Annotation:
This 141-nucleotide RNA from Oryza meyeriana belongs to the Rfam family "small nucleolar RNA snoR137". The family's RNA type in Rfam is H/ACA-box small nucleolar RNA. Rfam 15.1 lists 808 matches to the family in 221 species. The organism belongs to Oryza meyeriana, within Eukaryota.
RNA sequence: GUUGCUUCACGACUGGAAGAGUGGCCUGAUGAUUAUGGUUCGGUCAUCCUGUAGAUAGAAGCAUAGAUUAAUGUUGGCCAGAAUUAAACAGCAUGGCGCUUUAUUUCACCACAUCAAUGUUACCUGUCUCCUGGCACAUUU
Number, nucleotide and partner (000 for none) at each position: 001g000002u000003u063004g062005c061006u060007u059008c058009a000010c000011g000012a000013c000014u000015g000016g000017a052018a000019g050020a000021g048022u046023g045024g044025c043026c042027u000028g000029a000030u000031g000032a000033u000034u000035a000036u000037g000038g000039u000040u000041c000042g026043g025044u024045c023046a022047u000048c021049c000050u019051g000052u017053a000054g000055a000056u000057a000058g008059a007060a006061g005062c004063a003064u000065a000066g000067a000068u000069u000070a000071a000072u000073g000074u000075u000076g000077g135078c134079c133080a132081g131082a000083a129084u000085u000086a000087a000088a000089c000090a121091g120092c119093a000094u116095g115096g114097c000098g112099c000100u000101u000102u000103a000104u000105u000106u000107c000108a000109c000110c000111a000112c098113a000114u096115c095116a094117a000118u000119g092120u091121u090122a000123c000124c000125u000126g000127u000128c000129u083130c000131c081132u080133g079134g078135c077136a000137c000138a000139u000140u000141u000